[Rfam]
RNA sequence: AAGAUUUUUUAGAUUUCGGUAUCGCUAUAUCUCAUCGUCAUUCGUACCUCUCUCUCUUACCUCGGUUAGUUUCGCCGGGGUUUUU
Numbered sequence: 001a002a003g004a005u006u007u008u009u010u011a012g013a014u015u016u017c018g019g020u021a022u023c024g025c026u027a028u029a030u031c032u033c034a035u036c037g038u039c040a041u042u043c044g045u046a047c048c049u050c051u052c053u054c055u056c057u058u059a060c061c062u063c064g065g066u067u068a069g070u071u072u073c074g075c076c077g078g079g080g081u082u083u084u085u
Stems, first nucleotide, its partner, number of pairs: 059081008

This 85-nucleotide RNA sequence from Nostoc commune belongs to the Rfam family "Photosynthesis regulatory RNA1". It scores 56 bits against the family's covariance model. For this family Rfam cites "The small regulatory RNA SyR1/PsrR1 controls photosynthetic functions in cyanobacteria" (Georg et al., Plant Cell, 2014). By type it is a small RNA. The source organism's lineage runs through Bacteria, Nostocales, Nostocaceae, Nostoc and Nostoc commune. Rfam links the family to the GO terms regulation of translation and regulation of photosynthesis. Formerly known as Syr1 discovered in Synechocystis sp PCC 6803, is a regulatory factor controlling photosynthetic functions. PsrR1 interacts with the ribosome binding regions of several photosynthesis-related mRNAs. In particular, psaL mRNA is processed by RNase E only in the presence of PsrR1.